[Rfam]
RNA: tRNA
Organism: Hallella multisaccharivorax
RNA sequence: GCGCCUGUGGCGGAAUUGGUAGACGCGCCAGACUUAGGAUCUAGUUGUUUACGCAGUGCAGGUUCGAGUCCUGUCAGGCGCA
Numbered sequence: 001g002c003g004c005c006u007g008u009g010g011c012g013g014a015a016u017u018g019g020u021a022g023a024c025g026c027g028c029c030a031g032a033c034u035u036a037g038g039a040u041c042u043a044g045u046u047g048u049u050u051a052c053g054c055a056g057u058g059c060a061g062g063u064u065c066g067a068g069u070c071c072u073g074u075c076a077g078g079c080g081c082a
Stems, first nucleotide, its partner, number of pairs: 001081007010026003028044001030042003058074005
Dot-bracket structure: (((((((..(((...........))).(.(((.......))).).............(((((.......)))))))))))).